[Rfam]
rpsB sRNA: a 111-nucleotide RNA sequence from Rhizobium metallidurans. The family's RNA type in Rfam is small RNA.
RNA sequence: CACACGUAAGGCAUGGGAUUUGUCCGGGAGAAAUCCGGACGGUUCCGCCCGGUGGCAUCCUCGAAGAGGGUGCUGUUCGCCUUGCGGAGGUUCAACCGGAAAAGGAUAACA
Dot-bracket structure: (.(.(((((((...((........((.(......))).......)).......(((((((((...))))))))).....)))))))).)......................